[Rfam]
RNA sequence: AGAAAACCUCCGAAGAUCAAAGCUUGAAGCAAACGCAGAUUGUAAAAAAGCGGGAUGACGUGUGAACCGUCAUCCCGC
Numbered sequence: 001a002g003a004a005a006a007c008c009u010c011c012g013a014a015g016a017u018c019a020a021a022g023c024u025u026g027a028a029g030c031a032a033a034c035g036c037a038g039a040u041u042g043u044a045a046a047a048a049a050g051c052g053g054g055a056u057g058a059c060g061u062g063u064g065a066a067c068c069g070u071c072a073u074c075c076c077g078c
Stems, first nucleotide, its partner, number of pairs: 005041001008038002022030003050078004056072005
RNA: Pseudomonas sRNA P31